Shown here is a 139-nucleotide RNA from Halobacteroides halobius, a member of the family "c-di-AMP riboswitch aptamer (ydaO/yuaA leader)". Its family is annotated with regulation of gene expression and cyclic-di-AMP binding in the Gene Ontology. A search with the family's covariance model found it, with a score of 88 bits. This family represents a conserved RNA structure found upstream of the ydaO and yuaA genes in Bacillus subtilis and related genes in other bacteria.

[Rfam]
RNA sequence: AUAUCUGUAUAGCCGAGUCUUAUUUAAGAACGGGGGACCCAUUUUUGGGGCGAAUCUAAGCUUAUUAAAUUAAGUUUGGUAAGGUACCCUUUAGCCUGAGCCCGACAGCUAACUCCGUAGGCAUUUUUUAAGGGGGAUA
Numbered sequence: 001a002u003a004u005c006u007g008u009a010u011a012g013c014c015g016a017g018u019c020u021u022a023u024u025u026a027a028g029a030a031c032g033g034g035g036g037a038c039c040c041a042u043u044u045u046u047g048g049g050g051c052g053a054a055u056c057u058a059a060g061c062u063u064a065u066u067a068a069a070u071u072a073a074g075u076u077u078g079g080u081a082a083g084g085u086a087c088c089c090u091u092u093a094g095c096c097u098g099a100g101c102c103c104g105a106c107a108g109c110u111a112a113c114u115c116c117g118u119a120g121g122c123a124u125u126u127u128u129u130a131a132g133g134g135g136g137a138u139a
Base pairs, nucleotide, nucleotide: 012122013121014120018029019028020027030118031117032116033115034114035113040047041046048103049102050101056079057078058077059076060075061074062073063072082097083096084095085094